[Rfam]
RNA sequence: AUUCACCGAUUGAACCCGCUUCGUAUAACCCCACUGAUAGGGUGUGGGGGUCUCUACCAGAAUCCGUAAAAUUCUGAUUACGAAGAGUGAAGCCGAUUAA
Numbered sequence: 001a002u003u004c005a006c007c008g009a010u011u012g013a014a015c016c017c018g019c020u021u022c023g024u025a026u027a028a029c030c031c032c033a034c035u036g037a038u039a040g041g042g043u044g045u046g047g048g049g050g051u052c053u054c055u056a057c058c059a060g061a062a063u064c065c066g067u068a069a070a071a072u073u074c075u076g077a078u079u080a081c082g083a084a085g086a087g088u089g090a091a092g093c094c095g096a097u098u099a100a
Stems, first nucleotide, its partner, number of pairs: 019085007029049006058076006